[Rfam]
RNA sequence: GACAACCGUGAUGAGCCAAUUUUACAGUUACCGACCUGUAAUGACUCGUGCAGAAAUAAUCGCAUGGUCAAAGAACAUCUAAGGGACUUAUUUGUC
Dot-bracket structure: .((((......................................................................................)))).
Shown here is a 96-nucleotide RNA sequence from Aegilops tauschii, a member of the family "Small nucleolar RNA SNORD25". The literature on the family includes a 2001 paper in Nucleic Acids Res by Qu et al., "Identification of 10 novel snoRNA gene clusters from Arabidopsis thaliana". The family's consensus secondary structure was predicted with PFOLD. The family has 12 seed sequences and 985 matches in Rfam 15.1. Rfam classes the family as a C/D-box small nucleolar RNA.